[Rfam]
RNA sequence: CAACACCCUAAAGCGCCAGAACUAUUUUCAGAGACGAUACGGAAAAUAGUCGACGAGGUGGAGGUUGAUCGAGUGAUCGGCGGGUACCUCCCAAUUGCCGCAUCCCAAUUGAAGGGCUUGUUCUUAAAACAGUGAGGCGACUCAUUGGCCAAAGGAGCAGGUCAGGAUGCAG
Numbered sequence: 001c002a003a004c005a006c007c008c009u010a011a012a013g014c015g016c017c018a019g020a021a022c023u024a025u026u027u028u029c030a031g032a033g034a035c036g037a038u039a040c041g042g043a044a045a046a047u048a049g050u051c052g053a054c055g056a057g058g059u060g061g062a063g064g065u066u067g068a069u070c071g072a073g074u075g076a077u078c079g080g081c082g083g084g085u086a087c088c089u090c091c092c093a094a095u096u097g098c099c100g101c102a103u104c105c106c107a108a109u110u111g112a113a114g115g116g117c118u119u120g121u122u123c124u125u126a127a128a129a130c131a132g133u134g135a136g137g138c139g140a141c142u143c144a145u146u147g148g149c150c151a152a153a154g155g156a157g158c159a160g161g162u163c164a165g166g167a168u169g170c171a172g
Base pairs, nucleotide, nucleotide: 021050022049023048024047025046026045027044029042060091061090062089063088064087069080070079071078072077092111093110094109095108096107097106116162117161118160119159120158121157122156130147131146132145133144134143135142136141

The record is a 172-nucleotide RNA from Lentibacillus sp. JNUCC-1, which matches "glmS glucosamine-6-phosphate activated ribozyme aptamer" in Rfam. Its family is annotated with catalytic activity and regulation of gene expression in the Gene Ontology. Pairs were carried over by alignment from the consensus structure, which is taken from published work. Rfam describes the family as follows. This entry contains a glucosamine-6-phosphate activated ribozyme that is found in the mRNA for GlmS. GlmS is an enzyme that uses fructose-6-phosphate and glutamine to generate glucosamine-6-phosphate. The ribozyme catalyses self cleavage of the glmS mRNA that is thought to regulate GlmS activity.